Rfam assigns this 79-nucleotide RNA from Caenorhabditis briggsae to the family "mir-250 microRNA precursor family". Rfam's curators put it in the seed alignment. Its family is annotated with RISC complex and miRNA-mediated post-transcriptional gene silencing in the Gene Ontology. NCBI's taxonomy places the organism under Eukaryota, Ecdysozoa, Nematoda, Chromadorea, Caenorhabditis.

[Rfam]
RNA sequence: UCGGACCACGCCUUCAGUUGCCUCGUGAUCCGCCGAAUCUGUAAUGGACGAAUCACAGUCAACUGUUGGCACGGUCCUU
Numbered sequence: 001u002c003g004g005a006c007c008a009c010g011c012c013u014u015c016a017g018u019u020g021c022c023u024c025g026u027g028a029u030c031c032g033c034c035g036a037a038u039c040u041g042u043a044a045u046g047g048a049c050g051a052a053u054c055a056c057a058g059u060c061a062a063c064u065g066u067u068g069g070c071a072c073g074g075u076c077c078u079u
Stems, first nucleotide, its partner, number of pairs: 003077005011069002015065006022058002025056005031050002033047003